[Rfam]
Nucleotides: 082
Base pairs, nucleotide, nucleotide: 023046024045026043027042028041029040030039031038033080034079035078036077037076061074062073063072064071065070
Number, partner (000 for none) and nucleotide at each position: 001000c002000a003000c004000g005000g006000u007000a008000c009000g010000a011000u012000c013000a014000a015000c016000g017000u018000u019000u020000g021000c022000g023046u024045c025000a026043g027042u028041c029040c030039g031038u032000c033080g034079g035078c036077g037076g038031g039030c040029g041028g042027a043026u044000g045024g046023g047000c048000g049000u050000c051000c052000c053000a054000u055000g056000u057000c058000u059000c060000a061074c062073u063072g064071c065070c066000u067000g068000a069000a070065g071064g072063c073062a074061g075000a076037c077036c078035g079034c080033c081000a082000g
This 82-nucleotide RNA sequence from Synechococcus sp. RSCCF101 belongs to the Rfam family "Cyanobacterial ribosomal protein S1 leader". A search with the family's covariance model found it, with a score of 42 bits. About the family: cyano-S1 is a ncRNA recognized in the 5-prime region of genes encoding 30S ribosomal protein S1, it has been proposed as an cis regulation element. The family's consensus secondary structure is taken from published work. On this family, see Weinberg et al., Nucleic Acids Res 2007: "Identification of 22 candidate structured RNAs in bacteria using the CMfinder comparative genomics pipeline". The organism belongs to Synechococcus, within Bacteria. It is annotated as a cis-regulatory leader.